[Rfam]
RNA sequence: GGGAAACAAGCCAAACCUGUCGCGAGGCGGGGACGGAAAGCCACGGGUCUUGAUCCAUCAAGACGGCCGGGUUGCCCCGG
Number, nucleotide and partner (000 for none) at each position: 001g000002g000003g077004a000005a000006a000007c000008a000009a000010g000011c036012c035013a000014a000015a000016c031017c030018u029019g028020u027021c026022g000023c000024g000025a000026g021027g020028c019029g018030g017031g016032g000033a000034c066035g012036g011037a000038a000039a073040g072041c071042c070043a000044c069045g068046g067047g064048u063049c062050u061051u060052g000053a000054u000055c000056c000057a000058u000059c000060a051061a050062g049063a048064c047065g000066g034067c046068c045069g044070g042071g041072u040073u039074g000075c000076c000077c003078c000079g000080g000
A member of the RNA family "c-di-GMP-I-GGC riboswitch aptamer" from Desulfoluna spongiiphila, 80 nucleotides long.